RNA sequence: AAGCGAGGCUGAAAGUGGUUCCCCCCCACCCUUUCAGCACUUCCGGUGCGUUACCUUGAGAAGACCCGCGGCCCGACACCCUCACGGGUGCCGGGCCGCCUUCUUUU
Numbered sequence: 001a002a003g004c005g006a007g008g009c010u011g012a013a014a015g016u017g018g019u020u021c022c023c024c025c026c027c028a029c030c031c032u033u034u035c036a037g038c039a040c041u042u043c044c045g046g047u048g049c050g051u052u053a054c055c056u057u058g059a060g061a062a063g064a065c066c067c068g069c070g071g072c073c074c075g076a077c078a079c080c081c082u083c084a085c086g087g088g089u090g091c092c093g094g095g096c097c098g099c100c101u102u103c104u105u106u107u
Stems, first nucleotide, its partner, number of pairs: 005042003008038008017030003045055004059104005068099008077090005
This 107-nucleotide RNA sequence from Corallococcus coralloides belongs to the Rfam family "Pxr regulatory sRNA". Downregulates genes responsible for the formation of fruiting bodies in Myxococcus xanthus, inhibiting the transition from growth to development in the presence of abundant nutrients. Rfam classes the family as a small RNA. The base pairs follow the family's consensus structure, which is taken from published work.